Source information
This 108-nucleotide sequence from Nyssa sinensis belongs to the Rfam family "Small nucleolar RNA snoR97". A search with the family's covariance model found it, with a score of 90 bits. The source organism's lineage runs through Eukaryota, Embryophyta, Pentapetalae, asterids and Nyssa.
RNA sequence: CCCUUUUGGUGGUUGGAGAGUCUGAAAAACUCAUAAAUUGUGUGUUGUCUAUCAGCUUCUUCUCUUGCAUGUUCUACGGGAUAGGAGUUAAAUAUCAGCACAACAUCU
Numbered sequence: 001c002c003c004u005u006u007u008g009g010u011g012g013u014u015g016g017a018g019a020g021u022c023u024g025a026a027a028a029a030c031u032c033a034u035a036a037a038u039u040g041u042g043u044g045u046u047g048u049c050u051a052u053c054a055g056c057u058u059c060u061u062c063u064c065u066u067g068c069a070u071g072u073u074c075u076a077c078g079g080g081a082u083a084g085g086a087g088u089u090a091a092a093u094a095u096c097a098g099c100a101c102a103a104c105a106u107c108u
Base pairs, nucleotide, nucleotide: 041102042101043100044099045098046097047096054089055088056087057086058085059084061081062080063079064078